Overview
The family of this 287-nucleotide RNA sequence from Acanthoscelides obtectus is "Nuclear RNase P". Taxonomically the source falls in Acanthoscelides (Eukaryota, Panarthropoda, Altocrustacea, Aparaglossata).

[Rfam]
Nucleotides: 287
Stems, first nucleotide, its partner, number of pairs: 001287004007281003012244006021062001024059002035050005040044001071271005079220004089103005104119006120216007140202003245259005
Number, partner (000 for none) and nucleotide at each position: 001287u002286c003285u004284g005000c006000u007281a008280c009279a010000a011000u012244u013243c014242u015241g016240c017239a018000c019000c020000u021062g022000g023000a024059g025058c026000a027000u028000a029000c030000a031000u032000a033000c034000a035050g036049u037048g038047u039046a040044c041000c042000u043000g044040g045000u046039u047038a048037c049036a050035c051000c052000c053000u054000u055000g056000u057000u058025g059024c060000a061000a062021c063000g064000g065000g066000a067000a068000g069000g070000u071271c072270u073269g074268a075267g076000a077000a078000a079220g080219g081218c082217c083000a084000u085000c086000u087000g088000a089103c090102c091101c092100u093099c094000c095000a096000g097000c098000u099093g100092g101091g102090g103089g104119c105118c106117c107116a108115g109114u110000u111000a112000a113000g114109a115108c116107u117106g118105g119104g120216g121215u122214g123213g124212g125211a126210g127000a128000a129000c130000c131000a132000g133000a134000a135000a136000c137000a138000u139000g140202c141201u142200c143000u144000g145000g146000g147000a148000g149000g150000c151000a152000c153000c154000u155000a156000u157000a158000g159000c160000c161000c162000a163000g164000u165000a166000u167000u168000g169000c170000u171000c172000c173000u174000u175000g176000a177000g178000a179000g180000c181000a182000u183000a184000g185000g186000c187000a188000a189000u190000g191000c192000g193000c194000c195000u196000u197000u198000c199000g200142g201141g202140g203000u204000u205000g206000g207000a208000a209000a210126c211125u212124c213123c214122c215121a216120c217082g218081g219080c220079c221000g222000g223000c224000u225000g226000u227000u228000u229000a230000a231000g232000u233000u234000u235000a236000a237000u238000c239017u240016g241015c242014a243013g244012a245259c246258u247257g248256g249255g250000c251000u252000a253000u254000g255249c256248u257247c258246a259245g260000a261000a262000c263000u264000c265000a266000a267075u268074u269073c270072a271071g272000a273000c274000u275000a276000g277000u278000c279009u280008g281007u282000g283000g284004c285003g286002g287001a
Description:
About the family: Ribonuclease P (RNase P) is a ubiquitous endoribonuclease, found in archaea, bacteria and eukarya as well as chloroplasts and mitochondria.